[Rfam]
RNA sequence: AAAAAGGACAUCUGCUGUAAUUAGCAUAGUUGUGGAAAAGAGAUUCUCUGACACAUUUACGGAAUCGUUAUCAAGAGAUUUCGGAUGCACAAUUUUUGUAAGUUGGGGCAGCUAUUGACCAGUGUUCUUUGUGCCCCA
Numbered sequence: 001a002a003a004a005a006g007g008a009c010a011u012c013u014g015c016u017g018u019a020a021u022u023a024g025c026a027u028a029g030u031u032g033u034g035g036a037a038a039a040g041a042g043a044u045u046c047u048c049u050g051a052c053a054c055a056u057u058u059a060c061g062g063a064a065u066c067g068u069u070a071u072c073a074a075g076a077g078a079u080u081u082c083g084g085a086u087g088c089a090c091a092a093u094u095u096u097u098g099u100a101a102g103u104u105g106g107g108g109c110a111g112c113u114a115u116u117g118a119c120c121a122g123u124g125u126u127c128u129u130u131g132u133g134c135c136c137c138a
Base pairs, nucleotide, nucleotide: 009087010086011085012084013026014025015024016023017022027059028058029057031055032054033053034052060083061082062081063080064079065078066077106136107135108134109133111132112131114129117127118126120124
RNA: U11 spliceosomal RNA
Organism: Sinocyclocheilus rhinocerous